Background
The family of this 86-nucleotide RNA from Roseimaritima multifibrata is "c-di-GMP-I-GGC riboswitch aptamer". The match comes from Rfam's covariance-model search (67 bits). Its family is annotated with cyclic-di-GMP binding in the Gene Ontology. The base pairs follow the family's consensus structure, which is taken from published work.
RNA sequence: CUUGAAAAAGGCAAACCGAUCGCAAGGUCGGGGCGCAAAGCUGCGGGUGCAAUUUCUUCGGGAAUUGGAUCGCCGGGCUGCCAAGG
Number, nucleotide and partner (000 for none) at each position: 001c086002u000003u083004g082005a000006a000007a000008a000009a000010g000011g036012c035013a000014a000015a000016c031017c030018g029019a028020u027021c026022g000023c000024a000025a000026g021027g020028u019029c018030g017031g016032g000033g000034c072035g012036c011037a000038a000039a079040g078041c077042u076043g000044c075045g074046g073047g070048u069049g000050c000051a000052a000053u000054u000055u000056c000057u000058u000059c000060g000061g000062g000063a000064a000065u000066u000067g000068g000069a048070u047071c000072g034073c046074c045075g044076g042077g041078c040079u039080g000081c000082c004083a003084a000085g000086g001